[Rfam]
RNA: skipping-rope RNA
RNA sequence: UGGCUCUGAGGUGGAGAUUAUGUCCCGACCACGCGCCCUUGUGGCUAAAAGAGAUGCAGGAUUAUAGGGACGCCUGCCAGAGCCA
Numbered sequence: 001u002g003g004c005u006c007u008g009a010g011g012u013g014g015a016g017a018u019u020a021u022g023u024c025c026c027g028a029c030c031a032c033g034c035g036c037c038c039u040u041g042u043g044g045c046u047a048a049a050a051g052a053g054a055u056g057c058a059g060g061a062u063u064a065u066a067g068g069g070a071c072g073c074c075u076g077c078c079a080g081a082g083c084c085a
Stems, first nucleotide, its partner, number of pairs: 001085008011032004022071005034051001035045003056077005